Enterobacterial sRNA STnc230: an 83-nucleotide RNA sequence from Escherichia fergusonii.

[Rfam]
RNA sequence: GCGUUACCAUUCCAUUUCAUUGCCAGAAAACAAAACGGACAAUAACAAAAGUCUCCUUUUGAGGGGAGACUUUUUGUUCAGUU
Numbered sequence: 001g002c003g004u005u006a007c008c009a010u011u012c013c014a015u016u017u018c019a020u021u022g023c024c025a026g027a028a029a030a031c032a033a034a035a036c037g038g039a040c041a042a043u044a045a046c047a048a049a050a051g052u053c054u055c056c057u058u059u060u061g062a063g064g065g066g067a068g069a070c071u072u073u074u075u076g077u078u079c080a081g082u083u
Base pairs, nucleotide, nucleotide: 046076047075048074049073050072051070052069053068054067055066056065057064
It is one of the family's seed sequences.